[Rfam]
Nucleotides: 149
Base pairs, nucleotide, nucleotide: 002149003148004147005146008144009143010142011141012140013139019040020039021038022037023036024035025034026033041104042103043102044101050061051060052059053058082094083093084092085091086090
Number, partner (000 for none) and nucleotide at each position: 001000u002149c003148g004147g005146c006000u007000c008144g009143a010142u011141a012140u013139c014000g015000a016000u017000g018000g019040c020039g021038a022037c023036a024035c025034u026033a027000c028000g029000c030000a031000g032000g033026u034025a035024g036023u037022g038021u039020u040019g041104g042103a043102g044101g045000c046000a047000g048000c049000u050061u051060g052059a053058c054000g055000a056000a057000c058053g059052u060051c061050a062000g063000c064000u065000c066000u067000g068000c069000a070000u071000u072000a073000g074000c075000a076000g077000c078000a079000a080000a081000c082094a083093g084092g085091u086090c087000a088000g089000a090086g091085a092084c093083c094082u095000g096000c097000g098000g099000u100000g101044c102043c103042u104041c105000g106000c107000a108000a109000g110000a111000a112000c113000u114000c115000a116000a117000c118000a119000u120000u121000u122000c123000g124000c125000c126000g127000c128000c129000c130000c131000g132000a133000u134000g135000c136000a137000c138000a139013g140012a141011u142010a143009u144008c145000a146005g147004c148003u149002g